[Rfam]
Shown here is a 472-nucleotide part of an RNA from Tychaedon coryphoeus, a member of the family "Eukaryotic large subunit ribosomal RNA". The family's consensus secondary structure is taken from published work.

RNA sequence: GGUAGUAGCAAAUAUUCAAACAAGAGCUUUGAAGGCGGAAGUGGAGCAGGGUUCCAUGUGAGCCGCAGUUGAACAUGGGUCAGUUGGUCCUAAGCGAUAGGCGAGCGCCGUUCUGAAAGGGCGGGCGAUGGCCUCCGUUGCCCUCAGCCGAUCGAAAGAGAGUCAGGUUCAGAUCCCUGAAUCUGGAGUGGCGGAGACGGGUGCCGUGAGGGGCCCUGUGCAGUGACGCAACCGAUCCCUGAGAAGCUGGCGGGAGCCCCAGGGAGAGUUCUCUUCUCUUUGUGAAGGGCUGGGCGCCCUGGAAUGGGUUCGCCCCGAGAGAGGGGCCCGUGCCUUGGAAAGCGUCUUGGUUCCGCGGCAUCCAGUGAGCUCUCACUGGCCCAUGAAAAUCUAGGGGAGAGGGUGUAAGUCUCGUGCCGGGCCGUACCCAUAUCCACAGCAGGUCUCCAAGGUGAACAGCCUCUGGCAUGUA
Numbered sequence: 001g002g003u004a005g006u007a008g009c010a011a012a013u014a015u016u017c018a019a020a021c022a023a024g025a026g027c028u029u030u031g032a033a034g035g036c037g038g039a040a041g042u043g044g045a046g047c048a049g050g051g052u053u054c055c056a057u058g059u060g061a062g063c064c065g066c067a068g069u070u071g072a073a074c075a076u077g078g079g080u081c082a083g084u085u086g087g088u089c090c091u092a093a094g095c096g097a098u099a100g101g102c103g104a105g106c107g108c109c110g111u112u113c114u115g116a117a118a119g120g121g122c123g124g125g126c127g128a129u130g131g132c133c134u135c136c137g138u139u140g141c142c143c144u145c146a147g148c149c150g151a152u153c154g155a156a157a158g159a160g161a162g163u164c165a166g167g168u169u170c171a172g173a174u175c176c177c178u179g180a181a182u183c184u185g186g187a188g189u190g191g192c193g194g195a196g197a198c199g200g201g202u203g204c205c206g207u208g209a210g211g212g213g214c215c216c217u218g219u220g221c222a223g224u225g226a227c228g229c230a231a232c233c234g235a236u237c238c239c240u241g242a243g244a245a246g247c248u249g250g251c252g253g254g255a256g257c258c259c260c261a262g263g264g265a266g267a268g269u270u271c272u273c274u275u276c277u278c279u280u281u282g283u284g285a286a287g288g289g290c291u292g293g294g295c296g297c298c299c300u301g302g303a304a305u306g307g308g309u310u311c312g313c314c315c316c317g318a319g320a321g322a323g324g325g326g327c328c329c330g331u332g333c334c335u336u337g338g339a340a341a342g343c344g345u346c347u348u349g350g351u352u353c354c355g356c357g358g359c360a361u362c363c364a365g366u367g368a369g370c371u372c373u374c375a376c377u378g379g380c381c382c383a384u385g386a387a388a389a390u391c392u393a394g395g396g397g398a399g400a401g402g403g404u405g406u407a408a409g410u411c412u413c414g415u416g417c418c419g420g421g422c423c424g425u426a427c428c429c430a431u432a433u434c435c436a437c438a439g440c441a442g443g444u445c446u447c448c449a450a451g452g453u454g455a456a457c458a459g460c461c462u463c464u465g466g467c468a469u470g471u472a
Stems, first nucleotide, its partner, number of pairs: 015033006034469001035467002043448004049428002054078006063071001085424003090158001094153001096112003100109003119145003163180005183420004210413004219230003237395002241391002246380004252374006259365001263281005286336005297325004305317004344359003348355002434443002450462004
Dot-bracket structure: ..............((((((.......))))))(((......((((..((...((((((...(.......).))))))......(((..(...(.(((.(((....))))))......(((.....................))).......)....)....(((((........)))))..((((.......................((((.....(((......)))......((..((...((((..((((((.(...(((((.........)))))....(((((......((((....((((.....))))....))))......))))).......(((.((....)).))).....)...))))))..)))).........))..))..............))))...)))).)))..)).....((......)).)))).((((.....))))...)).)...